[Rfam]
RNA sequence: GGCUCAAAUUUGAAGUAGCAUAGAUUAGUAGGAUCAUCUCACCAUACUAAACUACUCUACUUCGAGUUUGUGUCC
Dot-bracket structure: (((.(((((.((((((((..(((.((((((.(.(......).).)))))).)))..)))))))).))))).))).
Numbered sequence: 001g002g003c004u005c006a007a008a009u010u011u012g013a014a015g016u017a018g019c020a021u022a023g024a025u026u027a028g029u030a031g032g033a034u035c036a037u038c039u040c041a042c043c044a045u046a047c048u049a050a051a052c053u054a055c056u057c058u059a060c061u062u063c064g065a066g067u068u069u070g071u072g073u074c075c
Stems, first nucleotide, its partner, number of pairs: 001074003005070005011064008021054003025050006032043001034041001